RNA sequence: GGAAGUGUGCCGGAGCAAGACAAACGGGACGGACUGUAAAUCCGUUGGCUAAGCCUACACUGGUGCGAAUCCAGUCACUUCCA
Numbered sequence: 001g002g003a004a005g006u007g008u009g010c011c012g013g014a015g016c017a018a019g020a021c022a023a024a025c026g027g028g029a030c031g032g033a034c035u036g037u038a039a040a041u042c043c044g045u046u047g048g049c050u051a052a053g054c055c056u057a058c059a060c061u062g063g064u065g066c067g068a069a070u071c072c073a074g075u076c077a078c079u080u081c082c083a
Stems, first nucleotide, its partner, number of pairs: 001082007010027003029045005059075005
Dot-bracket structure: (((((((..(((............))).(((((.......))))).............(((((.......)))))))))))).
The family of this 83-nucleotide sequence from Urinicoccus massiliensis is "tRNA". By type it is a transfer RNA. The organism belongs to Urinicoccus, within Bacteria.